[Rfam]
RNA sequence: AUCCUUUCGAUUUCGCGCGCUAAGCAGGAACCGAGACUUUGUCAUUUGCUAGCAGUCAGGUACCUGAAGUAGCGCGCGUGAUCAAACAGG
Number, nucleotide and partner (000 for none) at each position: 001a000002u000003c000004c000005u000006u000007u000008c000009g083010a082011u081012u080013u000014c078015g000016c076017g075018c074019g073020c072021u071022a070023a000024g000025c000026a000027g000028g000029a000030a061031c060032c059033g000034a000035g057036a056037c055038u054039u000040u000041g000042u000043c000044a000045u000046u000047u000048g000049c000050u000051a000052g000053c000054a038055g037056u036057c035058a000059g032060g031061u030062a000063c000064c000065u000066g000067a000068a000069g000070u022071a021072g020073c019074g018075c017076g016077c000078g014079u000080g012081a011082u010083c009084a000085a000086a000087c000088a000089g000090g000